[Rfam]
RNA sequence: UGUUAGGCGAAGUUGGUUUGUGACCGUCACUAACGGGCAGUGGUACAGGUUUGCUCGUUUUGACGAUCGCAAAAUGAACUCGCUUGAC
Numbered sequence: 001u002g003u004u005a006g007g008c009g010a011a012g013u014u015g016g017u018u019u020g021u022g023a024c025c026g027u028c029a030c031u032a033a034c035g036g037g038c039a040g041u042g043g044u045a046c047a048g049g050u051u052u053g054c055u056c057g058u059u060u061u062g063a064c065g066a067u068c069g070c071a072a073a074a075u076g077a078a079c080u081c082g083c084u085u086g087a088c
Base pairs, nucleotide, nucleotide: 003087004086005085006084007083008082009081010080013077014076015075017073018072019071020070021069022068023067025065026064032059033058034057035056036055037054038053039052